[Rfam]
RNA: Potassium channel RNA editing signal
Organism: Exaiptasia diaphana
RNA sequence: GUUGGCUAUGGCGACGUUUAUCCUAAGUCUCCUUACGGAAAAAUGAUUGGAACAGUUUGCGCGUGCGUAGGAGUUCUUAUUGUAGCACUUCCGGUCUCUGUCAUUGGAAGCAAC
Number, nucleotide and partner (000 for none) at each position: 001g114002u113003u000004g111005g000006c000007u108008a000009u106010g105011g104012c000013g102014a101015c100016g099017u000018u000019u000020a095021u094022c000023c000024u000025a000026a000027g000028u000029c000030u000031c000032c000033u000034u000035a000036c000037g077038g076039a075040a074041a000042a000043a000044u000045g000046a000047u000048u000049g000050g062051a000052a000053c000054a000055g000056u000057u000058u000059g000060c000061g000062c050063g000064u000065g000066c000067g000068u000069a000070g000071g000072a000073g000074u040075u039076c038077u037078u000079a000080u000081u000082g000083u000084a000085g000086c000087a000088c000089u000090u000091c000092c000093g000094g021095u020096c000097u000098c000099u016100g015101u014102c013103a000104u011105u010106g009107g000108a007109a000110g000111c004112a000113a002114c001